The family of this 138-nucleotide RNA from Gossypium raimondii is "mir-393 microRNA precursor family". Rfam 15.1 lists 1,052 matches to the family in 221 species. Lineage of the source: Eukaryota > Streptophyta > Tracheophyta > Spermatophyta > Gossypium.

RNA sequence: GGUGGAGAGCUCCAAAGGGAUCGCAUUGAUCUAAUGUCGAUGAUGGGCUUCCUUGAAAACCUUGACGAAUUGAUUAUUGAUUUUUGUUGAUUCAGUUCAGUACUCAUUGGAUCAUGCGAUCCCUUCGGAAUUUUCCAU
Numbered sequence: 001g002g003u004g005g006a007g008a009g010c011u012c013c014a015a016a017g018g019g020a021u022c023g024c025a026u027u028g029a030u031c032u033a034a035u036g037u038c039g040a041u042g043a044u045g046g047g048c049u050u051c052c053u054u055g056a057a058a059a060c061c062u063u064g065a066c067g068a069a070u071u072g073a074u075u076a077u078u079g080a081u082u083u084u085u086g087u088u089g090a091u092u093c094a095g096u097u098c099a100g101u102a103c104u105c106a107u108u109g110g111a112u113c114a115u116g117c118g119a120u121c122c123c124u125u126c127g128g129a130a131u132u133u134u135c136c137a138u
Base pairs, nucleotide, nucleotide: 002138003137004136005135006134008132009131011129012128013127015125016124017123018122019121020120021119023117024116025115026114028113029112030111031110032109033108034107035106036105